[Rfam]
RNA sequence: UUAGUCAACGGCUAGCGGACAACCGUAAGGGAGGGGCAUUAAGGAGUUGACUAAAUAACACCU
Numbered sequence: 001u002u003a004g005u006c007a008a009c010g011g012c013u014a015g016c017g018g019a020c021a022a023c024c025g026u027a028a029g030g031g032a033g034g035g036g037c038a039u040u041a042a043g044g045a046g047u048u049g050a051c052u053a054a055a056u057a058a059c060a061c062c063u
Stems, first nucleotide, its partner, number of pairs: 001054009
Dot-bracket structure: (((((((((....................................))))))))).........